L31-Actinobacteria ribosomal protein leader: a 47-nucleotide RNA sequence from Bifidobacterium italicum.
The family is grouped with related families in Rfam's "Ribosomal Protein L31 Leader clan".
By type it is a cis-regulatory leader.
RNA sequence: CAUGUAUCCGGUUCACGCCUGCCAUCGGGGCAUGGCGACCCGGGUCC
Numbered sequence: 001c002a003u004g005u006a007u008c009c010g011g012u013u014c015a016c017g018c019c020u021g022c023c024a025u026c027g028g029g030g031c032a033u034g035g036c037g038a039c040c041c042g043g044g045u046c047c
Stems, first nucleotide, its partner, number of pairs: 004046001006045001008043004016037004020032004